Shown here is a 264-nucleotide RNA sequence from Scyliorhinus torazame, a member of the family "RNase MRP".
It is annotated as a ribozyme.
The family's consensus secondary structure is taken from published work.
RNase MRP is an enzymatically active ribonucleoprotein with two distinct roles in eukaryotes.

Nucleotides: 264
Stems, first nucleotide, its partner, number of pairs: 002264010014218006023069006037052005075249002078247004091103004104117004120190003126185006136177002147173004157166003220234006
Number, partner (000 for none) and nucleotide at each position: 001000a002264g003263g004262c005261a006260u007259u008258c009257u010256g011255a012000a013000g014218a015217c016216c017215u018214g019213c020000u021000u022000a023069c024068u025067a026066g027065g028064c029000u030000a031000c032000a033000c034000a035000c036000g037052g038051a039050g040049a041048a042000c043000g044000c045000a046000g047000u048041u049040u050039c051038u052037c053000u054000c055000c056000c057000c058000c059000c060000c061000u062000g063000a064028g065027c066026c067025u068024a069023g070000g071000g072000g073000a074000a075249a076248g077000u078247c079246c080245c081244c082000g083000g084000a085000c086000c087000c088000g089000u090000g091103g092102g093101c094100a095000g096000u097000g098000a099000g100094u101093g102092u103091c104117u105116c106115g107114c108000c109000u110000u111000g112000a113000a114107g115106c116105g117104a118000u119000u120190g121189u122188c123000c124000c125000u126185g127184u128183c129182u130181g131180c132000a133000g134000g135000g136177c137176c138000c139000g140000c141000a142000u143000g144000a145000g146000g147173g148172c149171g150170c151000c152000a153000c154000g155000a156000u157166g158165u159164u160000c161000c162000c163000g164159g165158a166157c167000u168000g169000a170150g171149c172148g173147c174000g175000c176137g177136g178000g179000c180131g181130c182129a183128g184127a185126c186000g187000g188122g189121g190120c191000a192000g193000c194000c195000g196000u197000c198000c199000a200000a201000g202000c203000c204000a205000g206000a207000a208000g209000u210000u211000a212000c213019g214018c215017a216016g217015g218014u219000a220234a221233u222232g223231u224230a225229c226000u227000g228000g229225g230224u231223a232222c233221a234220u235000c236000a237000a238000c239000a240000g241000c242000a243000c244081g245080g246079g247078g248076c249075u250000c251000a252000u253000u254000c255011u256010c257009a258008g259007a260006a261005u262004g263003u264002c